[Rfam]
RNA sequence: GAUAGCCAUAAAUCACCAAGGGAUUGAGGGUAGGAUUUGUCACUACUCUAACAGCAUGAAUUGUCGAGUCGUAUAGUCCUCCCCAGAACAUUGCUUUACUCACAAGCAAUAAGGCGGCUAUACCCAAAAAUAAAAGAUGAUGACCUAAAAUCAAGCCAAGUUGUUUGGCAUCAUCCCA
Numbered sequence: 001g002a003u004a005g006c007c008a009u010a011a012a013u014c015a016c017c018a019a020g021g022g023a024u025u026g027a028g029g030g031u032a033g034g035a036u037u038u039g040u041c042a043c044u045a046c047u048c049u050a051a052c053a054g055c056a057u058g059a060a061u062u063g064u065c066g067a068g069u070c071g072u073a074u075a076g077u078c079c080u081c082c083c084c085a086g087a088a089c090a091u092u093g094c095u096u097u098a099c100u101c102a103c104a105a106g107c108a109a110u111a112a113g114g115c116g117g118c119u120a121u122a123c124c125c126a127a128a129a130a131u132a133a134a135a136g137a138u139g140a141u142g143a144c145c146u147a148a149a150a151u152c153a154a155g156c157c158a159a160g161u162u163g164u165u166u167g168g169c170a171u172c173a174u175c176c177c178a
Stems, first nucleotide, its partner, number of pairs: 136175006145168004
RNA: Antisense RNA which regulates isiA expression
Organism: Nostoc sp. PCC 7107